[Rfam]
RNA sequence: CUUGGUGGACGACCACUCAAGCCUCUGUUUAUCACUUCGGGACGGCCCGA
Dot-bracket structure: ((((((((....)))).))))...............(((((....)))))
About this RNA
A member of the RNA family "Guanidine-II riboswitch aptamer (mini-ykkC)" from Marinomonas transparens, 50 nucleotides long. Its family is annotated with regulation of gene expression in the Gene Ontology. It scores 38 bits against the family's covariance model. NCBI's taxonomy places the organism under Bacteria, Pseudomonadati, Pseudomonadota, Oceanospirillaceae, Marinomonas.